[Rfam]
RNA sequence: AGCAGCACGGGAGAGCGACCCGUUUGCUGGCAGACAAUCCAGUCCCCAUCGCACGGCAACUGUGGAUGGGGCUGGCUUUCUGCGCUUAACCCCGUCUUCCAAUAACGGUAAAGAUUCAGUGCAUUGCACUUGAUUGCAGAACUCGUCGGCAGCGUUAUGGAACGGACCGCAUCGCUCAGGGCGAACAAGUUUCUCCUCGCGGUUCCGUAGUCCCG
Numbered sequence: 001a002g003c004a005g006c007a008c009g010g011g012a013g014a015g016c017g018a019c020c021c022g023u024u025u026g027c028u029g030g031c032a033g034a035c036a037a038u039c040c041a042g043u044c045c046c047c048a049u050c051g052c053a054c055g056g057c058a059a060c061u062g063u064g065g066a067u068g069g070g071g072c073u074g075g076c077u078u079u080c081u082g083c084g085c086u087u088a089a090c091c092c093c094g095u096c097u098u099c100c101a102a103u104a105a106c107g108g109u110a111a112a113g114a115u116u117c118a119g120u121g122c123a124u125u126g127c128a129c130u131u132g133a134u135u136g137c138a139g140a141a142c143u144c145g146u147c148g149g150c151a152g153c154g155u156u157a158u159g160g161a162a163c164g165g166a167c168c169g170c171a172u173c174g175c176u177c178a179g180g181g182c183g184a185a186c187a188a189g190u191u192u193c194u195c196c197u198c199g200c201g202g203u204u205c206c207g208u209a210g211u212c213c214c215g
Stems, first nucleotide, its partner, number of pairs: 003029004007023005030083005036077001042073001044071007051060001162208004166203005179197003183193003